[Rfam]
This 90-nucleotide RNA from Micromonospora nigra belongs to the Rfam family "ZMP/ZTP riboswitch aptamer (pfl RNA motif)".
The family's consensus secondary structure is taken from published work.
The literature on the family includes a 2015 paper in Structure by Ren et al., "Global RNA Fold and Molecular Recognition for a pfl Riboswitch Bound to ZMP, a Master Regulator of One-Carbon Metabolism".
Taxonomically the source falls in Micromonospora (Bacteria, Actinomycetota, Actinomycetes, Micromonosporales).
RNA sequence: AGCACGGGCCGUGACUGGCGCGUGGGGAUGGAGCACCAUCGGGAAGCGGUCCCGUCGCAAGGACGCACGCCGAGCGCCUGGGCCUUCCGA
Numbered sequence: 001a002g003c004a005c006g007g008g009c010c011g012u013g014a015c016u017g018g019c020g021c022g023u024g025g026g027g028a029u030g031g032a033g034c035a036c037c038a039u040c041g042g043g044a045a046g047c048g049g050u051c052c053c054g055u056c057g058c059a060a061g062g063a064c065g066c067a068c069g070c071c072g073a074g075c076g077c078c079u080g081g082g083c084c085u086u087c088c089g090a
Base pairs, nucleotide, nucleotide: 004055005054006052007051008050009049010048011047012046015043016042017078018077019076020075021074028039029038030037031036067085069083070082071081